Group II catalytic intron D1-D4-3: a 196-nucleotide RNA from Lachnospiraceae bacterium A4.

[Rfam]
RNA sequence: GCGUGGGUAACUACGAAUCUGAAAGAAGCUGGAUGUGAGGAACAGAUUAACGCACGGGCAAAUCUCUGGUCUGAGGAACAGAAAUCUCAUGCGAGGUUAUGCAUGAGGGUAAGGUUGCAUAACAAACUAAAGCCCAAUAACGACACGGAAUCAUGCAUGAUAAAUGAGACAGAUGGAUGGAGAGGAUUCUAUAUUC
Number, nucleotide and partner (000 for none) at each position: 001g000002c015003g014004u013005g012006g011007g000008u000009a000010a000011c006012u005013a004014c003015g002016a000017a000018u000019c000020u000021g000022a000023a000024a000025g000026a000027a000028g000029c000030u000031g000032g000033a000034u000035g000036u000037g000038a000039g000040g000041a000042a000043c000044a000045g196046a195047u000048u193049a192050a000051c000052g000053c000054a000055c000056g000057g000058g189059c000060a000061a000062a000063u183064c182065u181066c180067u179068g178069g174070u173071c172072u171073g170074a000075g000076g000077a000078a000079c000080a000081g000082a000083a000084a000085u169086c168087u167088c166089a165090u164091g000092c000093g000094a000095g000096g161097u160098u159099a000100u157101g156102c155103a154104u153105g152106a151107g135108g134109g133110u132111a000112a000113g128114g127115u126116u125117g000118c000119a000120u000121a000122a000123c000124a000125a116126a115127c114128u113129a000130a000131a000132g110133c109134c108135c107136a000137a000138u000139a000140a000141c000142g000143a000144c000145a000146c000147g000148g000149a000150a000151u106152c105153a104154u103155g102156c101157a100158u000159g098160a097161u096162a000163a000164a090165u089166g088167a087168g086169a085170c073171a072172g071173a070174u069175g000176g000177a000178u068179g067180g066181a065182g064183a063184g000185g000186a000187u000188u000189c058190u000191a000192u049193a048194u000195u046196c045
The organism belongs to Lachnospiraceae, within Bacteria. Rfam's curators write: Group II introns are found in rRNA, tRNA and mRNA of organelles in fungi, plants and protists, and also in mRNA in bacteria.